S6-S18-Chlorobi ribosomal protein leader: a 77-nucleotide RNA sequence. The sequence is in the family's curated seed alignment. The base pairs follow the family's consensus structure, which is taken from published work.
RNA sequence: UUGCGGGUGGUGUUUGCGUUUUAUUGCGUGAAGCCUUGGGUCCGGUGUGCGCAAUCUCGGAACCUCGCCGUCUGCAA
Numbered sequence: 001u002u003g004c005g006g007g008u009g010g011u012g013u014u015u016g017c018g019u020u021u022u023a024u025u026g027c028g029u030g031a032a033g034c035c036u037u038g039g040g041u042c043c044g045g046u047g048u049g050c051g052c053a054a055u056c057u058c059g060g061a062a063c064c065u066c067g068c069c070g071u072c073u074g075c076a077a
Stems, first nucleotide, its partner, number of pairs: 001077012013032007038065004042060004